Description: Shown here is a 64-nucleotide RNA sequence from Pontiella desulfatans, a member of the family "DUF3800-VIII RNA". Rfam describes the family as follows. Bacteroidetes, Cyanobacteria, Firmicutes, Planctomycetes (1 example), Proteobacteria, Tenericutes (1 example). Rfam classes the family as a small RNA.
RNA sequence: UAGACCCUACCAAGCCGAAGUCUAACGCUCCGCGUCAGAUACAUCGUAGGCAAGGCGGGGUUUA
Numbered sequence: 001u002a003g004a005c006c007c008u009a010c011c012a013a014g015c016c017g018a019a020g021u022c023u024a025a026c027g028c029u030c031c032g033c034g035u036c037a038g039a040u041a042c043a044u045c046g047u048a049g050g051c052a053a054g055g056c057g058g059g060g061u062u063u064a
Stems, first nucleotide, its partner, number of pairs: 001064008010055002014051003020040004025035004